Record summary:
The record is a 59-nucleotide RNA sequence, which matches "Plastid-psbA-4 3UTR RNA" in Rfam. On this family, see Richter et al., Plant Commun 2023: "Retrograde signaling in plants: A critical review focusing on the GUN pathway and beyond". Plastid psbA-4 is a non-coding RNA (ncRNA) present in plastids. It was identified in inverted repeat sequences in the 3 prime untranslate region (3UTR) of photosystem II quinone-binding protein (psbA). By type it is a cis-regulatory element. The family is grouped with related families in Rfam's "Plastid-psbA 3UTR RNA clan". The sequence is in the family's curated seed alignment. The family's consensus secondary structure was predicted with LocARNA.
RNA sequence: GAAAGUAAAGGGGCAAUAACCAAUUUCUUGUUUUAUCAAGGAGUUGCUAUUGCUCCUUU
Numbered sequence: 001g002a003a004a005g006u007a008a009a010g011g012g013g014c015a016a017u018a019a020c021c022a023a024u025u026u027c028u029u030g031u032u033u034u035a036u037c038a039a040g041g042a043g044u045u046g047c048u049a050u051u052g053c054u055c056c057u058u059u
Base pairs, nucleotide, nucleotide: 007059008058009057010056011055012054013053014052015051016050017049018048022044025042026041027040028039029038030037